[Rfam]
The record is an 82-nucleotide RNA from Fusarium verticillioides, which matches "tRNA" in Rfam. The family's RNA type in Rfam is transfer RNA. Taxonomically the source falls in Fusarium verticillioides (Eukaryota, saccharomyceta, leotiomyceta, Sordariomycetes). The family's consensus secondary structure is taken from published work.

RNA sequence: GGCGUGGUGGCAGAGUGGUCUAAUGCGAUAGACUAGAAAUCUAUUCCCUUCGGGGGCGUCUGUUCGUAUCAGGCCCACGUCG
Number, nucleotide and partner (000 for none) at each position: 001g081002g080003c079004g078005u077006g076007g075008u000009g000010g026011c025012a024013g000014a000015g000016u000017g000018g000019u000020c000021u000022a000023a000024u012025g011026c010027g000028a044029u043030a042031g041032a040033c000034u000035a000036g000037a000038a000039a000040u032041c031042u030043a029044u028045u000046c000047c000048c000049u000050u000051c000052g000053g000054g000055g000056g000057c000058g074059u073060c072061u071062g070063u000064u000065c000066g000067u000068a000069u000070c062071a061072g060073g059074c058075c007076c006077a005078c004079g003080u002081c001082g000